Source information: The family of this 90-nucleotide sequence from Dokdonella fugitiva is "t44 RNA". By type it is a small RNA. The source organism's lineage runs through Bacteria, Pseudomonadota, Gammaproteobacteria, Lysobacterales and Dokdonella. The match comes from Rfam's covariance-model search (64 bits).
RNA sequence: CGGCAAUCGUGCCGAAUCCGCACACGUAUCGUCACCGCGUUCGGGGUGCUCCGCAAGGAGUCGCACGCGGCGGGUACGUGGAGGUCCAAC
Numbered sequence: 001c002g003g004c005a006a007u008c009g010u011g012c013c014g015a016a017u018c019c020g021c022a023c024a025c026g027u028a029u030c031g032u033c034a035c036c037g038c039g040u041u042c043g044g045g046g047u048g049c050u051c052c053g054c055a056a057g058g059a060g061u062c063g064c065a066c067g068c069g070g071c072g073g074g075u076a077c078g079u080g081g082a083g084g085u086c087c088a089a090c
Base pairs, nucleotide, nucleotide: 023080024079025078026077027076028075029074030073035070036069037068038067039066040065042063043062048061049060050059051058052057